[Rfam]
Nucleotides: 096
Stems, first nucleotide, its partner, number of pairs: 001026002004023001006021006038047003048096003057089003066081003
Number, partner (000 for none) and nucleotide at each position: 001026c002025g003000u004023c005000u006021a007020c008019u009018u010017g011016g012000g013000c014000a015000a016011c017010u018009a019008a020007g021006u022000c023004g024000a025002u026001g027000a028000u029000u030000a031000a032000a033000c034000a035000g036000a037000a038047g039046u040045c041000a042000g043000c044000a045040g046039a047038c048096g049095a050094c051000a052000u053000a054000g055000u056000a057089g058088c059087c060000a061000a062000a063000u064000g065000c066081c067080c068079a069000u070000c071000g072000u073000a074000a075000u076000g077000g078000u079068u080067g081066g082000g083000a084000c085000a086000g087059g088058g089057u090000g091000a092000a093000g094050g095049u096048c
Shown here is a 96-nucleotide RNA from methanotrophic endosymbiont of Bathymodiolus azoricus, a member of the family "Group II catalytic intron D1-D4-1". The match comes from Rfam's covariance-model search (64 bits). The literature on the family includes a 2001 paper in Trends Genet by Bonen and Vogel, "The ins and outs of group II introns".